[Rfam]
RNA sequence: GGUUGGCAAUUAAUGAUGAUUAAAAAAACUUUCGUUCUUCCGAGAUUUGAUGCGGAAAAACCUGGAGACCUGAUCUGACCGAUU
Numbered sequence: 001g002g003u004u005g006g007c008a009a010u011u012a013a014u015g016a017u018g019a020u021u022a023a024a025a026a027a028a029c030u031u032u033c034g035u036u037c038u039u040c041c042g043a044g045a046u047u048u049g050a051u052g053c054g055g056a057a058a059a060a061c062c063u064g065g066a067g068a069c070c071u072g073a074u075c076u077g078a079c080c081g082a083u084u
Stems, first nucleotide, its partner, number of pairs: 003082004
RNA: Small nucleolar RNA Z159/U59
Organism: Babesia ovis